RNA sequence: GGGUCUUUAGCUCAGCAGUAGAGCGGCAGACUUCGGCUUCUUCGAAGAUUCCUUCAUGGUAUUCUGCAGGUCGCGGGUUCAAUCCCCGUAGGACUCU
Numbered sequence: 001g002g003g004u005c006u007u008u009a010g011c012u013c014a015g016c017a018g019u020a021g022a023g024c025g026g027c028a029g030a031c032u033u034c035g036g037c038u039u040c041u042u043c044g045a046a047g048a049u050u051c052c053u054u055c056a057u058g059g060u061a062u063u064c065u066g067c068a069g070g071u072c073g074c075g076g077g078u079u080c081a082a083u084c085c086c087c088g089u090a091g092g093a094c095u096c097u
Base pairs, nucleotide, nucleotide: 001096002095003094004093005092006091007090010024011023012022013021026067027066028065029064030063073089074088075087076086077085